Shown here is a 98-nucleotide RNA sequence from Bacillus sp. PK3_68, a member of the family "Guanidine-I riboswitch aptamer".
A reference for the family is Barrick et al. (2004), "New RNA motifs suggest an expanded scope for riboswitches in bacterial genetic control", Proc Natl Acad Sci U S A.

RNA sequence: AUCCAUGUUUUCUAGGGUUCCGCGGAUGCGUCCGGUCUGGUCCGAGAGAAGGCACACAGAGUCUUUCUGUGACACGGAGGGAUAAAAGCCCGGGAGAU
Dot-bracket structure: ......((((((..((...(((((((....))))..).)).))....)))))).((((((.....)))))).(.[...(((.......))).)..]..
Numbered sequence: 001a002u003c004c005a006u007g008u009u010u011u012c013u014a015g016g017g018u019u020c021c022g023c024g025g026a027u028g029c030g031u032c033c034g035g036u037c038u039g040g041u042c043c044g045a046g047a048g049a050a051g052g053c054a055c056a057c058a059g060a061g062u063c064u065u066u067c068u069g070u071g072a073c074a075c076g077g078a079g080g081g082a083u084a085a086a087a088g089c090c091c092g093g094g095a096g097a098u
Stems, first nucleotide, its partner, number of pairs: 007053006015043002020040002022037001023034004055071006073093001075096001079091003